[Rfam]
RNA sequence: GGACAGGCCUCUGGAGAGACUCGUCUGAGCACCGAAGGGGAAAACCAAAACAUUGGUGAAACUCUCAGGUAAAAGGACAGGGGAUUUAGG
Numbered sequence: 001g002g003a004c005a006g007g008c009c010u011c012u013g014g015a016g017a018g019a020c021u022c023g024u025c026u027g028a029g030c031a032c033c034g035a036a037g038g039g040g041a042a043a044a045c046c047a048a049a050a051c052a053u054u055g056g057u058g059a060a061a062c063u064c065u066c067a068g069g070u071a072a073a074a075g076g077a078c079a080g081g082g083g084a085u086u087u088a089g090g
Base pairs, nucleotide, nucleotide: 006085008083009082010081011080012079013078020029021028022027031070032069033068034066035065038064039063040062044057045056
A member of the RNA family "Glycine riboswitch aptamer" from Paramaledivibacter caminithermalis, 90 nucleotides long. Taxonomically the source falls in Paramaledivibacter caminithermalis (Bacteria, Bacillati, Bacillota, Caminicellaceae).